[Rfam]
RNA sequence: AUGUGACCAAUGUGUUUCCCUUUGUCUUCCUAUGCCUGGAGCUACGGAUAAGGCUGGGAUCACAAAGGGAUGCUCAGUUGUCAUUACC
Numbered sequence: 001a002u003g004u005g006a007c008c009a010a011u012g013u014g015u016u017u018c019c020c021u022u023u024g025u026c027u028u029c030c031u032a033u034g035c036c037u038g039g040a041g042c043u044a045c046g047g048a049u050a051a052g053g054c055u056g057g058g059a060u061c062a063c064a065a066a067g068g069g070a071u072g073c074u075c076a077g078u079u080g081u082c083a084u085u086a087c088c
Stems, first nucleotide, its partner, number of pairs: 017070006024063002028059005034054004
RNA: mir-204 microRNA precursor family